Record summary: The family of this 132-nucleotide RNA sequence from Oryctolagus cuniculus is "Small nucleolar RNA SNORA72". Rfam 15.1 lists 1,541 matches to the family in 547 species.
[Rfam]
RNA sequence: UUGAGAAUAUUCUCGCUGCUCUGACUUUGUAAUAAUUAGGACAGACUAAACAUUCGCUAUAUUAAGACCAUACAUGUAUCCCCAGGCCUAGUUCUUUCCCUGUGUUUGGUUUUAUAAAUGUUCCUGAUAAAA
Numbered sequence: 001u002u003g004a005g006a007a008u009a010u011u012c013u014c015g016c017u018g019c020u021c022u023g024a025c026u027u028u029g030u031a032a033u034a035a036u037u038a039g040g041a042c043a044g045a046c047u048a049a050a051c052a053u054u055c056g057c058u059a060u061a062u063u064a065a066g067a068c069c070a071u072a073c074a075u076g077u078a079u080c081c082c083c084a085g086g087c088c089u090a091g092u093u094c095u096u097u098c099c100c101u102g103u104g105u106u107u108g109g110u111u112u113u114a115u116a117a118a119u120g121u122u123c124c125u126g127a128u129a130a131a132a
Base pairs, nucleotide, nucleotide: 003057005055016044017043018042020040021039022038023037024036026034067125070122072121073120082109083108084107085106086105087104089102090101091100
The family's RNA type in Rfam is H/ACA-box small nucleolar RNA. The match comes from Rfam's covariance-model search (122 bits). About the family: U72 is a member of the H/ACA class of snoRNAs. The snoRNA gene is located in intron 4 of the ribosomal L30 protein gene in human, mouse and chicken.